[Rfam]
RNA sequence: UGGUUUUUUUAGGUUUUGAUUUUUAUGACUUGUAUAUAAGAAAAUCAAAACCUAAAGAAAAUA
Numbered sequence: 001u002g003g004u005u006u007u008u009u010u011a012g013g014u015u016u017u018g019a020u021u022u023u024u025a026u027g028a029c030u031u032g033u034a035u036a037u038a039a040g041a042a043a044a045u046c047a048a049a050a051c052c053u054a055a056a057g058a059a060a061a062u063a
Stems, first nucleotide, its partner, number of pairs: 004060021
The family of this 63-nucleotide sequence from Pangasianodon hypophthalmus is "mir-737 microRNA precursor family". The family's consensus secondary structure was predicted with RNAalifold. The match comes from Rfam's covariance-model search (84 bits). Its family is annotated with miRNA-mediated post-transcriptional gene silencing and RISC complex in the Gene Ontology. The family has 5 seed sequences and 233 matches in Rfam 15.1. The organism belongs to Pangasianodon, within Eukaryota.